The family of this 588-nucleotide part of an RNA from Chlamydia felis is "Bacterial large subunit ribosomal RNA". Gene Ontology terms of the family: ribosome and structural constituent of ribosome. The sequence is in the family's curated seed alignment. The base pairs follow the family's consensus structure, which is taken from published work. Lineage of the source: Bacteria > Chlamydiota > Chlamydiia > Chlamydiaceae > Chlamydia.
[Rfam]
RNA sequence: CCCGCAAAAGGACGAAAAGACCCCGUGAACCUUUACUGUACUUUGGUAUUGAUUCUUGAUUUGUUAUGUGUAGCAUAGCCAGGAGACUGUGAACACUCUUCGUUAGGAGAGUGGGAGUCAUCGUUGAAAUACUGGUCUUAACAAGUUGGGAGUCUAACAUAAUUCCAUGAAUCUGGAAUAUGGACAUUGCCAGACGGGCAGUUUUACUGGGGCGGUAUCCUCCUAAAAAGUAACGGAGGAGCCCAAAGCUUAUUUCAUCGUGGUUGGCAAUCACGAGUAGAGCGUAAAGGUAUAAAAUAGGUUGACUGUAAGACCUACAAGUCAAGCAGAGACGAAAGUCGGGCUUAGUGAUCCGGCGGUGGAAAGUGGAAUCGCCGUCGCUUAACGGAUAAAAGGUACUCCGGGGAUAACAGGCUGAUCGCCACCAAGAGUUCAUAUCGACGUGGCGGUUUGGCACCUCGAUGUCGGCUCAUCGCAUCCUGGGGCUGGAGAAGGUCCCAAGGGUUUGGCUGUUCGCCAAUUAAAGCGGUACGCGAGCUGGGUUCAAAACGUCGUGAGACAGUUUGGUCUCUAUCCUUUGUGGGCGCA
Numbered sequence: 001c002c003c004g005c006a007a008a009a010g011g012a013c014g015a016a017a018a019g020a021c022c023c024c025g026u027g028a029a030c031c032u033u034u035a036c037u038g039u040a041c042u043u044u045g046g047u048a049u050u051g052a053u054u055c056u057u058g059a060u061u062u063g064u065u066a067u068g069u070g071u072a073g074c075a076u077a078g079c080c081a082g083g084a085g086a087c088u089g090u091g092a093a094c095a096c097u098c099u100u101c102g103u104u105a106g107g108a109g110a111g112u113g114g115g116a117g118u119c120a121u122c123g124u125u126g127a128a129a130u131a132c133u134g135g136u137c138u139u140a141a142c143a144a145g146u147u148g149g150g151a152g153u154c155u156a157a158c159a160u161a162a163u164u165c166c167a168u169g170a171a172u173c174u175g176g177a178a179u180a181u182g183g184a185c186a187u188u189g190c191c192a193g194a195c196g197g198g199c200a201g202u203u204u205u206a207c208u209g210g211g212g213c214g215g216u217a218u219c220c221u222c223c224u225a226a227a228a229a230g231u232a233a234c235g236g237a238g239g240a241g242c243c244c245a246a247a248g249c250u251u252a253u254u255u256c257a258u259c260g261u262g263g264u265u266g267g268c269a270a271u272c273a274c275g276a277g278u279a280g281a282g283c284g285u286a287a288a289g290g291u292a293u294a295a296a297a298u299a300g301g302u303u304g305a306c307u308g309u310a311a312g313a314c315c316u317a318c319a320a321g322u323c324a325a326g327c328a329g330a331g332a333c334g335a336a337a338g339u340c341g342g343g344c345u346u347a348g349u350g351a352u353c354c355g356g357c358g359g360u361g362g363a364a365a366g367u368g369g370a371a372u373c374g375c376c377g378u379c380g381c382u383u384a385a386c387g388g389a390u391a392a393a394a395g396g397u398a399c400u401c402c403g404g405g406g407a408u409a410a411c412a413g414g415c416u417g418a419u420c421g422c423c424a425c426c427a428a429g430a431g432u433u434c435a436u437a438u439c440g441a442c443g444u445g446g447c448g449g450u451u452u453g454g455c456a457c458c459u460c461g462a463u464g465u466c467g468g469c470u471c472a473u474c475g476c477a478u479c480c481u482g483g484g485g486c487u488g489g490a491g492a493a494g495g496u497c498c499c500a501a502g503g504g505u506u507u508g509g510c511u512g513u514u515c516g517c518c519a520a521u522u523a524a525a526g527c528g529g530u531a532c533g534c535g536a537g538c539u540g541g542g543u544u545c546a547a548a549a550c551g552u553c554g555u556g557a558g559a560c561a562g563u564u565u566g567g568u569c570u571c572u573a574u575c576c577u578u579u580g581u582g583g584g585c586g587c588a
Stems, first nucleotide, its partner, number of pairs: 001584008010576003014571002022405004027401002029397005035202004042194007051154016068137001078136005085119003094113008158182003162179006205217004218240006241386001243343002249301006255281002258276006282291002306329004312323003331340003354380007362373002414455003418452001419449007429439002466541001467539004471533001472530005479504002482499006506520005547565004551560003